[Rfam]
RNA sequence: UUAGAAUUAAAUAGUGAUACUCAUAUAAUAAUCUGGAAUAUGGCCAGAAAGUUUCUACCUAAGAACCGUAAAUUCUUAGACUAUGAGUGUGUGUCUUUGAAUU
Numbered sequence: 001u002u003a004g005a006a007u008u009a010a011a012u013a014g015u016g017a018u019a020c021u022c023a024u025a026u027a028a029u030a031a032u033c034u035g036g037a038a039u040a041u042g043g044c045c046a047g048a049a050a051g052u053u054u055c056u057a058c059c060u061a062a063g064a065a066c067c068g069u070a071a072a073u074u075c076u077u078a079g080a081c082u083a084u085g086a087g088u089g090u091g092u093g094u095c096u097u098u099g100a101a102u103u
Stems, first nucleotide, its partner, number of pairs: 018089008029050001032048005059079007
Shown here is a 103-nucleotide sequence from Senegalia massiliensis, a member of the family "Purine riboswitch aptamer". A search with the family's covariance model found it, with a score of 83 bits.